Source information
c-di-GMP-I riboswitch aptamer: a 93-nucleotide sequence from Pontibacillus litoralis.
RNA sequence: UCUCGAUAAAGGCAAACCUAAUGAAAGUUAGGGACGCAAAACUUUAGGGGCUAAGGGCAAAGUGGUUAUUGUCUAUGCUAGCCAGUUUCCGAA
Number, nucleotide and partner (000 for none) at each position: 001u000002c000003u000004c000005g000006a000007u000008a000009a000010a000011g000012g037013c036014a000015a000016a000017c032018c031019u030020a029021a028022u027023g000024a000025a000026a000027g022028u021029u020030a019031g018032g017033g000034a000035c000036g013037c012038a000039a000040a087041a086042c085043u084044u000045u000046a000047g083048g082049g079050g078051c077052u000053a000054a000055g000056g073057g072058c071059a070060a000061a000062g000063u000064g000065g000066u000067u000068a000069u000070u059071g058072u057073c056074u000075a000076u000077g051078c050079u049080a000081g000082c048083c047084a043085g042086u041087u040088u000089c000090c000091g000092a000093a000